[Rfam]
RNA sequence: AGAGCGCUGGAGUCCAGGAGGAUGCCUCUAGCCUGCGAGCUUUCACGGAAGCCAUGACCAGGUAUUCAGCUCCUCCUGGAGAUGUACCACAG
Dot-bracket structure: .....(...(..(((.((.((......(.((((((...(((((....)))))......)))))..)..)..)).)).)))..)...).....
Numbered sequence: 001a002g003a004g005c006g007c008u009g010g011a012g013u014c015c016a017g018g019a020g021g022a023u024g025c026c027u028c029u030a031g032c033c034u035g036c037g038a039g040c041u042u043u044c045a046c047g048g049a050a051g052c053c054a055u056g057a058c059c060a061g062g063u064a065u066u067c068a069g070c071u072c073c074u075c076c077u078g079g080a081g082a083u084g085u086a087c088c089a090c091a092g
Stems, first nucleotide, its partner, number of pairs: 006087001010083001013080003017076002020073002028069001030066001031063005039052005

This 92-nucleotide RNA from Orthohepacivirus hominis belongs to the Rfam family "Hepatitis C virus stem-loop SL8670". For this family Rfam cites "Functionally conserved architecture of hepatitis C virus RNA genomes" (Mauger et al., Proc Natl Acad Sci U S A, 2015). Pairs were carried over by alignment from the consensus structure, which was predicted with RNAfold. It is one of the family's seed sequences. By type it is a cis-regulatory element.